RNA sequence: UGGACUGGCUGAAAGGCCCGGGUCCACCCAGCGGCGGGGGGAGUCCCC
Numbered sequence: 001u002g003g004a005c006u007g008g009c010u011g012a013a014a015g016g017c018c019c020g021g022g023u024c025c026a027c028c029c030a031g032c033g034g035c036g037g038g039g040g041g042a043g044u045c046c047c048c
Base pairs, nucleotide, nucleotide: 001026002025003024004023005022006021007018008017009016010015
The record is a 48-nucleotide RNA sequence, which matches "DUF3800-XI RNA" in Rfam. The base pairs follow the family's consensus structure, which is taken from published work. The family's RNA type in Rfam is small RNA.